[Rfam]
RNA: U1A polyadenylation inhibition element (PIE)
RNA sequence: UUUGAAAGCAUUGCACCCAGAGUCUGCUUGGCAGACAUUGUACCUGGAGCUUGUGAAUAAAGCAUUUU
Number, nucleotide and partner (000 for none) at each position: 001u000002u000003u000004g000005a000006a052007a051008g050009c049010a000011u000012u000013g000014c000015a000016c000017c047018c046019a045020g044021a000022g036023u035024c034025u033026g032027c000028u000029u000030g000031g000032c026033a025034g024035a023036c022037a000038u000039u000040g000041u000042a000043c000044c020045u019046g018047g017048a000049g009050c008051u007052u006053g000054u000055g000056a000057a000058u000059a000060a000061a000062g000063c000064a000065u000066u000067u000068u000